[Rfam]
RNA: 6A RNA
RNA sequence: AGUUCUGCUCGGAGGGCUACGAGCAUGGUAAAAAAAGAAAGUCCACUUAGA
Number, nucleotide and partner (000 for none) at each position: 001a000002g000003u000004u000005c000006u025007g024008c023009u022010c021011g020012g000013a000014g044015g043016g042017c041018u000019a000020c011021g010022a009023g008024c007025a006026u000027g000028g000029u000030a000031a000032a000033a000034a000035a000036a000037g000038a000039a000040a000041g017042u016043c015044c014045a000046c000047u000048u000049a000050g000051a000